Shown here is a 319-nucleotide RNA sequence from Platysternon megacephalum, a member of the family "Nuclear RNase P".
Taxonomically the source falls in Platysternon (Eukaryota, Chordata, Gnathostomata, Amniota).
It scores 185 bits against the family's covariance model.
About the family: Ribonuclease P (RNase P) is a ubiquitous endoribonuclease, found in archaea, bacteria and eukarya as well as chloroplasts and mitochondria. Its best characterised activity is the generation of mature 5'-ends of tRNAs by cleaving the 5'-leader elements of precursor-tRNAs. Cellular RNase Ps are ribonucleoproteins. RNA from bacterial RNase Ps retains its catalytic activity in the absence of the protein subunit, i.e. it is a ribozyme. Isolated eukaryotic and archaeal RNase P RNA has not been shown to retain its catalytic function, but is still essential for the catalytic activity of the holoenzyme. Although the archaeal and eukaryotic holoenzyme s have a much greater protein content than the bacterial ones, the RNA cores from all the three lineages are homologous -- helices corresponding to P1, P2, P3, P4, and P10/11 are common to all cellular RNase P RNAs. Yet, there is considerable sequence variation, particularly among the eukaryotic RNAs.

RNA sequence: GUCAGAGGGAAGCUCACCACUGAGGUCACAUGCAGGGUGCUUGUCACUCAGUGUUCAAUAUCUCUGGGAAGGUCUGAGACAAGAGCCAUUAGCUGCCCUUGCAGGGCAUCACCUGCUGCAGGGGAAUGAGUUACCAGCUAUGUGGGGCCCUGGGUUGGGACAUGUGUGUGGCAGGAGAAGCCAGAGGGUUACUCCCCUGGCAGAUGCCCAUUCUCCAAAGGGCUUUGGGACAGGCUCAUGGUUGGCACCACUGAGCUCAAUGGGAUGAGGUGAGGCCUCAUGGGCCUCAUAACCCAACUCAGACUACUCUCCCUCUGAC
Numbered sequence: 001g002u003c004a005g006a007g008g009g010a011a012g013c014u015c016a017c018c019a020c021u022g023a024g025g026u027c028a029c030a031u032g033c034a035g036g037g038u039g040c041u042u043g044u045c046a047c048u049c050a051g052u053g054u055u056c057a058a059u060a061u062c063u064c065u066g067g068g069a070a071g072g073u074c075u076g077a078g079a080c081a082a083g084a085g086c087c088a089u090u091a092g093c094u095g096c097c098c099u100u101g102c103a104g105g106g107c108a109u110c111a112c113c114u115g116c117u118g119c120a121g122g123g124g125a126a127u128g129a130g131u132u133a134c135c136a137g138c139u140a141u142g143u144g145g146g147g148c149c150c151u152g153g154g155u156u157g158g159g160a161c162a163u164g165u166g167u168g169u170g171g172c173a174g175g176a177g178a179a180g181c182c183a184g185a186g187g188g189u190u191a192c193u194c195c196c197c198u199g200g201c202a203g204a205u206g207c208c209c210a211u212u213c214u215c216c217a218a219a220g221g222g223c224u225u226u227g228g229g230a231c232a233g234g235c236u237c238a239u240g241g242u243u244g245g246c247a248c249c250a251c252u253g254a255g256c257u258c259a260a261u262g263g264g265a266u267g268a269g270g271u272g273a274g275g276c277c278u279c280a281u282g283g284g285c286c287u288c289a290u291a292a293c294c295c296a297a298c299u300c301a302g303a304c305u306a307c308u309c310u311c312c313c314u315c316u317g318a319c
Stems, first nucleotide, its partner, number of pairs: 001319004008312003013269004017264002022064004035049005074302005084243004094108005109125002112122003126239007146224006270290007